Record summary
A member of the RNA family "Histone 3' UTR stem-loop" from Sinocyclocheilus grahami, 45 nucleotides long. It is annotated as a cis-regulatory element.

RNA sequence: CCAAAGGCUCUUUUAAGAGCCACCCAUAUUGUCUUUAAAAGAGCU
Numbered sequence: 001c002c003a004a005a006g007g008c009u010c011u012u013u014u015a016a017g018a019g020c021c022a023c024c025c026a027u028a029u030u031g032u033c034u035u036u037a038a039a040a041g042a043g044c045u
Stems, first nucleotide, its partner, number of pairs: 006021006
The match comes from Rfam's covariance-model search (42 bits).